The record is a 109-nucleotide sequence from Blautia wexlerae, which matches "TPP riboswitch aptamer (THI element)" in Rfam. From the family's description: Vitamin B(1) in its active form thiamin pyrophosphate (TPP) is an essential coenzyme that is synthesised by coupling of pyrimidine and thiazole moieties in bacteria. The previously detected thiamin-regulatory element, thi box was extended, resulting in a new, highly conserved RNA secondary structure, the THI element, which is widely distributed in eubacteria and also occurs in some archaea. Analysis of operon structures identified a large number of new candidate thiamin-regulated genes, mostly transporters, in various prokaryotic organisms. The base pairs follow the family's consensus structure, which is taken from published work. NCBI's taxonomy places the organism under Bacteria, Bacillati, Clostridia, Lachnospiraceae, Blautia.
RNA sequence: AAUUGAGACAAGGGGUGCUUGUGUAAACAGGCUGAGAGUAAGCUGUAUCGCUUUAACCCAUUACCUGAUUUGGAUAAUGCCAACGUAGGGAAAGUUAUAGUUCUUCCAC
Numbered sequence: 001a002a003u004u005g006a007g008a009c010a011a012g013g014g015g016u017g018c019u020u021g022u023g024u025a026a027a028c029a030g031g032c033u034g035a036g037a038g039u040a041a042g043c044u045g046u047a048u049c050g051c052u053u054u055a056a057c058c059c060a061u062u063a064c065c066u067g068a069u070u071u072g073g074a075u076a077a078u079g080c081c082a083a084c085g086u087a088g089g090g091a092a093a094g095u096u097a098u099a100g101u102u103c104u105u106c107c108a109c
Stems, first nucleotide, its partner, number of pairs: 007096003012059003017032005040053004064089004070083004